[Rfam]
RNA sequence: UUAAAAAAAUUUCAUGCAUUUGUAUUGUUAAAAGCUGACUUGACUGAUAGAAUAAUUAGACAAUACGCAUCAUGUGUCACAUGUACCACAUGUUUAUGUACAAAGAGUAAUUUUUAACAAUAGAAAUGUAUACAAUUUUUA
Numbered sequence: 001u002u003a004a005a006a007a008a009a010u011u012u013c014a015u016g017c018a019u020u021u022g023u024a025u026u027g028u029u030a031a032a033a034g035c036u037g038a039c040u041u042g043a044c045u046g047a048u049a050g051a052a053u054a055a056u057u058a059g060a061c062a063a064u065a066c067g068c069a070u071c072a073u074g075u076g077u078c079a080c081a082u083g084u085a086c087c088a089c090a091u092g093u094u095u096a097u098g099u100a101c102a103a104a105g106a107g108u109a110a111u112u113u114u115u116a117a118c119a120a121u122a123g124a125a126a127u128g129u130a131u132a133c134a135a136u137u138u139u140u141a
Stems, first nucleotide, its partner, number of pairs: 002141002006139006014131003018127004023122004028117006
The record is a 141-nucleotide sequence from Gossypium hirsutum, which matches "MIR7502 microRNA precursor family" in Rfam. Gene Ontology terms of the family: RISC complex and miRNA-mediated post-transcriptional gene silencing. The organism belongs to Gossypium, within Eukaryota. Rfam 15.1 lists 74,505 matches to the family in 24 species.